Rfam assigns this 64-nucleotide RNA sequence from Lentibacillus sp. JNUCC-1 to the family "Ribosomal protein L13 leader". The source organism's lineage runs through Bacteria, Bacillota, Caryophanales, Bacillaceae and Lentibacillus. This family is a putative r-protein leader autoregulatory structure found in B. subtilis and other low-GC Gram-positive bacteria. It is located in the 5' untranslated regions of mRNAs encoding the L13-S9 (rplM-rpsI) ribosomal protein operon. Rfam classes the family as a cis-regulatory leader.

RNA sequence: GGUAUUUUUAUAUUCAAACCACGAUUAGCCCCGGAAAUCUAAUUGUGUUGAAAUAAAAAAUAAA
Numbered sequence: 001g002g003u004a005u006u007u008u009u010a011u012a013u014u015c016a017a018a019c020c021a022c023g024a025u026u027a028g029c030c031c032c033g034g035a036a037a038u039c040u041a042a043u044u045g046u047g048u049u050g051a052a053a054u055a056a057a058a059a060a061u062a063a064a
Stems, first nucleotide, its partner, number of pairs: 006060004011055002020047009